[Rfam]
RNA sequence: UUGCACAAUGUUCAGAGGCUUCGCCCAGAACCUCUUGGAAAAGAGGAAAAAAUGGAGUAGCCUCUUGAGCGAUAGUGCAGAAAUGGAAAGCUGAGCUUGUAUCAGCGGCGGCCAGACAACCGCUGUGAUGGAUCCACAGAUGAGCUCUUGCCGUGGUGCUUGUCUACUAAUUCCAUCUCAAAUUU
Numbered sequence: 001u002u003g004c005a006c007a008a009u010g011u012u013c014a015g016a017g018g019c020u021u022c023g024c025c026c027a028g029a030a031c032c033u034c035u036u037g038g039a040a041a042a043g044a045g046g047a048a049a050a051a052a053u054g055g056a057g058u059a060g061c062c063u064c065u066u067g068a069g070c071g072a073u074a075g076u077g078c079a080g081a082a083a084u085g086g087a088a089a090g091c092u093g094a095g096c097u098u099g100u101a102u103c104a105g106c107g108g109c110g111g112c113c114a115g116a117c118a119a120c121c122g123c124u125g126u127g128a129u130g131g132a133u134c135c136a137c138a139g140a141u142g143a144g145c146u147c148u149u150g151c152c153g154u155g156g157u158g159c160u161u162g163u164c165u166a167c168u169a170a171u172u173c174c175a176u177c178u179c180a181a182a183u184u185u
Stems, first nucleotide, its partner, number of pairs: 002079005009071003013067002015064006022057001024055002125179001127177006143161002145156001
RNA: small nucleolar RNA snoR143
Organism: Dorcoceras hygrometricum